Shown here is a 98-nucleotide RNA sequence from Tetracentron sinense, a member of the family "mir-172 microRNA precursor family".
mir-172 has been experimentally verified in Arabidopsis thaliana. This family is thought to target mRNAs coding for APETALA2-like transcription factors.
RNA sequence: UUUAUUGUCGAUGCAGCAUCAUCAAGAUUCUCAUAGAGAUGAAUACAUCACAACCAUGCAUUUUAUGUGAAUCUUGAUGAUGCUACAUCCACAAACAA
Number, nucleotide and partner (000 for none) at each position: 001u000002u000003u000004a000005u000006u000007g000008u000009c000010g089011a088012u087013g086014c000015a084016g083017c082018a081019u080020c079021a078022u077023c076024a075025a074026g073027a072028u071029u070030c069031u000032c067033a066034u065035a064036g063037a062038g061039a000040u000041g000042a000043a000044u000045a000046c000047a000048u000049c000050a000051c000052a000053a000054c000055c000056a000057u000058g000059c000060a000061u038062u037063u036064u035065a034066u033067g032068u000069g030070a029071a028072u027073c026074u025075u024076g023077a022078u021079g020080a019081u018082g017083c016084u015085a000086c013087a012088u011089c010090c000091a000092c000093a000094a000095a000096c000097a000098a000